[Rfam]
RNA sequence: AAGGCUUCAUUUUGUUCUCUAAUUGGCUUGCAUGAGUGGUUCUACUUAAAAGCAGGUCUUCAUAGAAGUGAAGCUAGAUAAAAAAUGCUUCCCUCGCUAUCCAGUGUGGUAUUUGUGUCACAUUUGGACGUUGGGCAGUGACAUUU
Numbered sequence: 001a002a003g004g005c006u007u008c009a010u011u012u013u014g015u016u017c018u019c020u021a022a023u024u025g026g027c028u029u030g031c032a033u034g035a036g037u038g039g040u041u042c043u044a045c046u047u048a049a050a051a052g053c054a055g056g057u058c059u060u061c062a063u064a065g066a067a068g069u070g071a072a073g074c075u076a077g078a079u080a081a082a083a084a085a086u087g088c089u090u091c092c093c094u095c096g097c098u099a100u101c102c103a104g105u106g107u108g109g110u111a112u113u114u115g116u117g118u119c120a121c122a123u124u125u126g127g128a129c130g131u132u133g134g135g136c137a138g139u140g141a142c143a144u145u146u
Stems, first nucleotide, its partner, number of pairs: 003075003008070006025058007036047001087139003091135003095130002100128005109118003
Dot-bracket structure: ..(((..((((((...........(((((((....(..........)....)))))))......))))))..)))...........(((.(((.((...(((((....(((....))).....)))))))..))).))).......